[Rfam]
RNA: Small nucleolar RNA SNORD63
Organism: Ochotona princeps
RNA sequence: GUGCAAUGAUGCAUUUUAGUUAUCAACACAUCAUUCUGAACUCAUGAGAUGUGUGUAAAAUUAAUGACUGAGCACA
Numbered sequence: 001g002u003g004c005a006a007u008g009a010u011g012c013a014u015u016u017u018a019g020u021u022a023u024c025a026a027c028a029c030a031u032c033a034u035u036c037u038g039a040a041c042u043c044a045u046g047a048g049a050u051g052u053g054u055g056u057a058a059a060a061u062u063a064a065u066g067a068c069u070g071a072g073c074a075c076a
Base pairs, nucleotide, nucleotide: 001075002074003073004072